[Rfam]
RNA sequence: GUAGAUGCUCAUUCCAUCUCUUAUGUUCGCCUUAGUGCCUCAUAAACUCCGGAAUGACGCAGAGCCGUUUACGGUGCUUAUCGUCCACUGACAGAUGUCGCUUAUGCCUCAUCAGACACCAUGGACACAACGUUGAGUGAAGCACCCACUUGUUGUCAUACAGACCUGUUUUAACGCCUGCUCCGUUAAUAAGAGCAGGCGUUUUUU
Numbered sequence: 001g002u003a004g005a006u007g008c009u010c011a012u013u014c015c016a017u018c019u020c021u022u023a024u025g026u027u028c029g030c031c032u033u034a035g036u037g038c039c040u041c042a043u044a045a046a047c048u049c050c051g052g053a054a055u056g057a058c059g060c061a062g063a064g065c066c067g068u069u070u071a072c073g074g075u076g077c078u079u080a081u082c083g084u085c086c087a088c089u090g091a092c093a094g095a096u097g098u099c100g101c102u103u104a105u106g107c108c109u110c111a112u113c114a115g116a117c118a119c120c121a122u123g124g125a126c127a128c129a130a131c132g133u134u135g136a137g138u139g140a141a142g143c144a145c146c147c148a149c150u151u152g153u154u155g156u157c158a159u160a161c162a163g164a165c166c167u168g169u170u171u172u173a174a175c176g177c178c179u180g181c182u183c184c185g186u187u188a189a190u191a192a193g194a195g196c197a198g199g200c201g202u203u204u205u206u207u
Base pairs, nucleotide, nucleotide: 001065002064006061007060008059009057010056011055012054015052017051019044027037073146074145075144076143077142078141079140083126084125085124086123087122094113095112096111097110155165156164157163173203174202175201176200177199178198179197180196181195182194183193
RNA: GlmZ RNA activator of glmS mRNA